[Rfam]
RNA: Ma3 gene ribosomal frameshift signal
Organism: Rhinolophus ferrumequinum
RNA sequence: GGGAAACGGGAGCUGGGCUUGGGACAAGAGCCAACCCAAGCCCUAGAAAGCCAAGGCUCA
Dot-bracket structure: ..............(((((((((....[[[[[..)))))))))...........]]]]].
Numbered sequence: 001g002g003g004a005a006a007c008g009g010g011a012g013c014u015g016g017g018c019u020u021g022g023g024a025c026a027a028g029a030g031c032c033a034a035c036c037c038a039a040g041c042c043c044u045a046g047a048a049a050g051c052c053a054a055g056g057c058u059c060a
Stems, first nucleotide, its partner, number of pairs: 015043009028059005